[Rfam]
About this RNA
The record is a 148-nucleotide RNA from Mesorhizobium sp. ORS 3428, which matches "speF leader" in Rfam. On this family, see Corbino et al., Genome Biol 2005: "Evidence for a second class of S-adenosylmethionine riboswitches and other regulatory RNA motifs in alpha-proteobacteria".
RNA sequence: UGCCGGUCGUCCAAAGACCGGGGUUACUGAAGAGGCACACCUUCAUUGCCGGCAGUGAGGACGGGAGUCUCCCAUCCAAGCCAAGGCAGACAAAGCGAACCGAGGCCGGGCAAGGCCAGGUUCAUCGCCGCGAGACGGCGAUUCGUGG
Numbered sequence: 001u002g003c004c005g006g007u008c009g010u011c012c013a014a015a016g017a018c019c020g021g022g023g024u025u026a027c028u029g030a031a032g033a034g035g036c037a038c039a040c041c042u043u044c045a046u047u048g049c050c051g052g053c054a055g056u057g058a059g060g061a062c063g064g065g066a067g068u069c070u071c072c073c074a075u076c077c078a079a080g081c082c083a084a085g086g087c088a089g090a091c092a093a094a095g096c097g098a099a100c101c102g103a104g105g106c107c108g109g110g111c112a113a114g115g116c117c118a119g120g121u122u123c124a125u126c127g128c129c130g131c132g133a134g135a136c137g138g139c140g141a142u143u144c145g146u147g148g
Stems, first nucleotide, its partner, number of pairs: 001023001003021006034050004057128001059126001081089001100110002
It is annotated as a cis-regulatory leader. The family's consensus secondary structure was predicted with RNAalifold. Gene Ontology term of the family: regulation of gene expression. About the family: This family is a putative regulatory RNA structure that is found upstream of the speF gene encoding ornithine decarboxylase in Agrobacterium tumefaciens and other alpha-proteobacteria. Taxonomically the source falls in Mesorhizobium (Bacteria, Pseudomonadati, Pseudomonadota, Hyphomicrobiales).